[Rfam]
RNA sequence: CUAACAGUGUUUAUUGGCAUUCUGUCCACCUCCUCCUAUCAUUUUUAGAGAAAAAAAAAUAUUACAUAAUGUGAAAAUUCUAUUUAAAAAAUUGUUAGUUAGAGGAGGUGGACAUACUGCCAACUGAUCUCUGUUGG
Numbered sequence: 001c002u003a004a005c006a007g008u009g010u011u012u013a014u015u016g017g018c019a020u021u022c023u024g025u026c027c028a029c030c031u032c033c034u035c036c037u038a039u040c041a042u043u044u045u046u047a048g049a050g051a052a053a054a055a056a057a058a059a060u061a062u063u064a065c066a067u068a069a070u071g072u073g074a075a076a077a078u079u080c081u082a083u084u085u086a087a088a089a090a091a092u093u094g095u096u097a098g099u100u101a102g103a104g105g106a107g108g109u110g111g112a113c114a115u116a117c118u119g120c121c122a123a124c125u126g127a128u129c130u131c132u133g134u135u136g137g
Base pairs, nucleotide, nucleotide: 011127014123015122016121017120018119019118023114024113025112026111027110028109029108030107031106032105033104034103035102
Dot-bracket structure: ..........(..((((((...(((((((((((((..................................................................)))))))))))))...))))))...)..........
MIR394 microRNA precursor family: a 137-nucleotide RNA from Salvia splendens. For this family Rfam cites "Computational identification of plant microRNAs and their targets, including a stress-induced miRNA" (Jones-Rhoades and Bartel, Mol Cell, 2004). The source organism's lineage runs through Eukaryota, Viridiplantae, eudicotyledons, asterids and core Calosphace.